[Rfam]
This 102-nucleotide sequence from Methylomusa anaerophila belongs to the Rfam family "Purine riboswitch aptamer". The source organism's lineage runs through Bacteria, Bacillota, Negativicutes, Selenomonadales and Methylomusa.
RNA sequence: GGAAAUAAAGUCCAUAAGGCUCGUAUAUUUUUGAGGAUAUGGCUCAAAAGUUUCUACCAGGCAACCGUAAAUUGCCCGACUACGGGUGAAAGUGUACCUAGG
Dot-bracket structure: ..................(((((((...(((((((.......)))))))........(.(((((.......))))).)..)))))))...............